[Rfam]
RNA sequence: GCGAUCUUGUUGGGAGAAUCCAGCUUCGAGCUGGUGCCGAAGGAGCAACCGCCCCGGAAACUCUCAGGCCCACGAACCAGCAGGA
Numbered sequence: 001g002c003g004a005u006c007u008u009g010u011u012g013g014g015a016g017a018a019u020c021c022a023g024c025u026u027c028g029a030g031c032u033g034g035u036g037c038c039g040a041a042g043g044a045g046c047a048a049c050c051g052c053c054c055c056g057g058a059a060a061c062u063c064u065c066a067g068g069c070c071c072a073c074g075a076a077c078c079a080g081c082a083g084g085a
Stems, first nucleotide, its partner, number of pairs: 006084008020034004036069003039065002043063003049057002
Dot-bracket structure: .....((((((((......((((.......)))).(((((..(((...((.....))...))))).))).......)))))))).
RNA: Glycine riboswitch aptamer